[Rfam]
RNA sequence: AAGCCAGCCAAUGUAUCUGCUUAUCUGAAUGUGUUUCUGCAGAAGUUCAGAGAAAGCUGGCAGUAUAGUAAAGCCACAUUACAGAGGUUUACAGACAUUGAACUCAUUAAGCACCCUGAAAAUGUCUGUAAGA
Numbered sequence: 001a002a003g004c005c006a007g008c009c010a011a012u013g014u015a016u017c018u019g020c021u022u023a024u025c026u027g028a029a030u031g032u033g034u035u036u037c038u039g040c041a042g043a044a045g046u047u048c049a050g051a052g053a054a055a056g057c058u059g060g061c062a063g064u065a066u067a068g069u070a071a072a073g074c075c076a077c078a079u080u081a082c083a084g085a086g087g088u089u090u091a092c093a094g095a096c097a098u099u100g101a102a103c104u105c106a107u108u109a110a111g112c113a114c115c116c117u118g119a120a121a122a123u124g125u126c127u128g129u130a131a132g133a
Base pairs, nucleotide, nucleotide: 003061004060005059006058007057016043017042018041019040020039073126075124076123087112088111089110090109091108094105095104
A member of the RNA family "Small nucleolar RNA SNORA33" from Phyllostomus discolor, 133 nucleotides long. The family's consensus secondary structure was predicted with PFOLD. The source organism's lineage runs through Eukaryota, Euteleostomi, Sarcopterygii, Tetrapoda and Phyllostomus. The family's RNA type in Rfam is H/ACA-box small nucleolar RNA. The match comes from Rfam's covariance-model search (96 bits). Gene Ontology terms of the family: nucleolus and RNA processing. ACA33 is a member of the H/ACA class of snoRNA that guide the sites of modification of uridines to pseudouridines.